[Rfam]
RNA sequence: GACACCCAUGAAUUGGGGAACAUCAUUGGGUGCCCGUGUGGCGGCCUUUUGUGCCGACCCUCGGCCCCAAUUUAUUUAUCAAUUUACGUGCCUAUUCUAUCACCCCCGGUUCCCUCUUUUGAGGUUCUUCCGGGGUUUUUUACGGGAAUAUCCUCAGCACGUUUCUUACUUCUUCACGCGAAAGCUUGGAGGUUACAGUC
Numbered sequence: 001g002a003c004a005c006c007c008a009u010g011a012a013u014u015g016g017g018g019a020a021c022a023u024c025a026u027u028g029g030g031u032g033c034c035c036g037u038g039u040g041g042c043g044g045c046c047u048u049u050u051g052u053g054c055c056g057a058c059c060c061u062c063g064g065c066c067c068c069a070a071u072u073u074a075u076u077u078a079u080c081a082a083u084u085u086a087c088g089u090g091c092c093u094a095u096u097c098u099a100u101c102a103c104c105c106c107c108g109g110u111u112c113c114c115u116c117u118u119u120u121g122a123g124g125u126u127c128u129u130c131c132g133g134g135g136u137u138u139u140u141u142a143c144g145g146g147a148a149u150a151u152c153c154u155c156a157g158c159a160c161g162u163u164u165c166u167u168a169c170u171u172c173u174u175c176a177c178g179c180g181a182a183a184g185c186u187u188g189g190a191g192g193u194u195a196c197a198g199u200c
Stems, first nucleotide, its partner, number of pairs: 001200003004193003008162003013157007022149002178185002
The family of this 200-nucleotide part of an RNA from Trypanosoma brucei is "Eukaryotic small subunit ribosomal RNA". The source organism's lineage runs through Eukaryota, Discoba, Euglenozoa, Kinetoplastea and Trypanosoma brucei brucei. Clan: SSU clan. Its family is annotated with structural constituent of ribosome and ribosome in the Gene Ontology. The base pairs follow the family's consensus structure, which is taken from published work.